[Rfam]
RNA sequence: CAAAAUAAAUAUGUUUUCUCUCAUAUAAUGAUGGGAAUAUGGCCCAUAAGUCUCUACCCAAUGACCGUAAAUCAUUGGACUAUGAGAGAAAGUAGUUCAAAA
Numbered sequence: 001c002a003a004a005a006u007a008a009a010u011a012u013g014u015u016u017u018c019u020c021u022c023a024u025a026u027a028a029u030g031a032u033g034g035g036a037a038u039a040u041g042g043c044c045c046a047u048a049a050g051u052c053u054c055u056a057c058c059c060a061a062u063g064a065c066c067g068u069a070a071a072u073c074a075u076u077g078g079a080c081u082a083u084g085a086g087a088g089a090a091a092g093u094a095g096u097u098c099a100a101a102a
Stems, first nucleotide, its partner, number of pairs: 018088008029049001031047005058078007